[Rfam]
RNA sequence: AACUACACUAUCAAUGAAUGGAUUCACCUAUAAGAUGACGUGGUUGUUCCACCUAGGAUGAGAACGUGGCAUCCUAUUAAUUUCGUGCAAUGACUGAUAAUAGGAUGCCACAUCCUCGUCCUAAGUGGAACAGCCAUGUCAUAUCACGGGUGAAUCCAUUUAUUGAUAGUGUGGAU
Numbered sequence: 001a002a003c004u005a006c007a008c009u010a011u012c013a014a015u016g017a018a019u020g021g022a023u024u025c026a027c028c029u030a031u032a033a034g035a036u037g038a039c040g041u042g043g044u045u046g047u048u049c050c051a052c053c054u055a056g057g058a059u060g061a062g063a064a065c066g067u068g069g070c071a072u073c074c075u076a077u078u079a080a081u082u083u084c085g086u087g088c089a090a091u092g093a094c095u096g097a098u099a100a101u102a103g104g105a106u107g108c109c110a111c112a113u114c115c116u117c118g119u120c121c122u123a124a125g126u127g128g129a130a131c132a133g134c135c136a137u138g139u140c141a142u143a144u145c146a147c148g149g150g151u152g153a154a155u156c157c158a159u160u161u162a163u164u165g166a167u168a169g170u171g172u173g174g175a176u
Base pairs, nucleotide, nucleotide: 001176003174004173005172006171007170009168010167011166012165013164014163015162017160018159019158021156022155023154024153025152026151027150028149031146033144035142036141037140038139039138041136042135043134044133045132046131047130048129051126052125054123055122057120058119064113069108070107071106072105073104074103075102076101077100078099079098086097
RNA: MIR807 microRNA precursor family
Organism: Oryza sativa